[Rfam]
RNA sequence: AAGACUGUCGAUUUAAUAACAACAGUCAUUCCCAUGAAGAUGGGAAUCUCUUAAAUGGUUGAGAGAUCCCCGUGUCAAGCACGAGGGUGACAGUGUUUUUCGACAUAAAUCUC
Numbered sequence: 001a002a003g004a005c006u007g008u009c010g011a012u013u014u015a016a017u018a019a020c021a022a023c024a025g026u027c028a029u030u031c032c033c034a035u036g037a038a039g040a041u042g043g044g045a046a047u048c049u050c051u052u053a054a055a056u057g058g059u060u061g062a063g064a065g066a067u068c069c070c071c072g073u074g075u076c077a078a079g080c081a082c083g084a085g086g087g088u089g090a091c092a093g094u095g096u097u098u099u100u101c102g103a104c105a106u107a108a109a110u111c112u113c
Base pairs, nucleotide, nucleotide: 003027004026005025007023008022012018028047029046030045031044032043033042034041035040058104059103060102061101063100064099065098066088067087068086069085071083072082073081074080075079
The record is a 113-nucleotide sequence from Francisella tularensis, which matches "Francisella sRNA B" in Rfam. From the family's description: Deletion led to significant changes in the expression of several mRNAs. However, it did not alter Francisella's growth under stress condition or its ability to induce disease in a mouse model. Rfam classes the family as a small RNA. For this family Rfam cites "Identification of small RNAs in Francisella tularensis" (Postic et al., BMC Genomics, 2010). The base pairs follow the family's consensus structure, which was predicted with RNAfold. A search with the family's covariance model found it, with a score of 69 bits.